The family of this 105-nucleotide sequence from Prunus avium is "MIR6274 microRNA precursor family". A search with the family's covariance model found it, with a score of 82 bits.
RNA sequence: AGAUAACACUUUUUGCUAUCCCCGGCCAAUAACGCAAUGACAUGUAAGAUAAUUUUUUCACAUGUCAUUGUGUUAUUAGCCAAAAAUAGCAAAAUAGUGUUAUAC
Numbered sequence: 001a002g003a004u005a006a007c008a009c010u011u012u013u014u015g016c017u018a019u020c021c022c023c024g025g026c027c028a029a030u031a032a033c034g035c036a037a038u039g040a041c042a043u044g045u046a047a048g049a050u051a052a053u054u055u056u057u058u059c060a061c062a063u064g065u066c067a068u069u070g071u072g073u074u075a076u077u078a079g080c081c082a083a084a085a086a087u088a089g090c091a092a093a094a095u096a097g098u099g100u101u102a103u104a105c
Stems, first nucleotide, its partner, number of pairs: 003103003011094009024081003028077018047058003